About this RNA:
A member of the RNA family "mir-191 microRNA precursor family" from Phrynocephalus forsythii, 91 nucleotides long. It scores 65 bits against the family's covariance model. Its family is annotated with miRNA-mediated post-transcriptional gene silencing and RISC complex in the Gene Ontology. Pairs were carried over by alignment from the consensus structure, which was predicted with RNAalifold. Taxonomically the source falls in Phrynocephalus (Eukaryota, Bilateria, Vertebrata, Teleostomi). For this family Rfam cites "Microarray analysis of microRNA expression in the developing mammalian brain" (Miska et al., Genome Biol, 2004).
[Rfam]
RNA sequence: GGCAGGAGAGCAGGGAACGAAAUCCAAGGGCAGCUGAAUCAUUCAGAGAAAAACAGCUGCUUUUGGGAUUCCGUUGCCCACGAUCAUGCCA
Number, nucleotide and partner (000 for none) at each position: 001g000002g000003c000004a000005g000006g000007a000008g000009a000010g081011c000012a000013g078014g000015g000016a000017a074018c073019g072020a000021a070022a069023u068024c066025c065026a064027a063028g000029g000030g060031c059032a058033g057034c056035u055036g054037a000038a000039u000040c000041a000042u000043u000044c000045a000046g000047a000048g000049a000050a000051a000052a000053a000054c036055a035056g034057c033058u032059g031060c030061u000062u000063u027064u026065g025066g024067g000068a023069u022070u021071c000072c019073g018074u017075u000076g000077c000078c013079c000080a000081c010082g000083a000084u000085c000086a000087u000088g000089c000090c000091a000